Background: The record is a 112-nucleotide RNA sequence from Chitinophaga sp. MD30, which matches "SAM riboswitch aptamer (S box leader)" in Rfam. Pairs were carried over by alignment from the consensus structure, which is taken from published work. The organism belongs to Chitinophaga, within Bacteria.
RNA sequence: UUCUUAUCAAGAAAGGCUGAGGGUAAUGGCCCGUCGAAGUCUUAGCAACCUUCCUGUUCACCACAGGAAAGGUGCUACAUCCAUCCUCCCGCAAGGGUAGGGCAGAUAAGUC
Number, nucleotide and partner (000 for none) at each position: 001u000002u000003c110004u109005u108006a107007u106008c105009a000010a000011g000012a000013a043014a042015g041016g040017c039018u000019g000020a000021g032022g031023g030024u000025a000026a084027u083028g082029g081030c023031c022032c021033g000034u000035c000036g000037a000038a000039g017040u016041c015042u014043u013044a076045g075046c074047a073048a000049c072050c071051u068052u067053c066054c000055u000056g000057u000058u000059c000060a000061c000062c000063a000064c000065a000066g053067g052068a051069a000070a000071g050072g049073u047074g046075c045076u044077a000078c000079a000080u104081c029082c028083a027084u026085c101086c100087u099088c000089c097090c096091g000092c000093a000094a000095g000096g090097g089098u000099a087100g086101g085102g000103c000104a080105g008106a007107u006108a005109a004110g003111u000112c000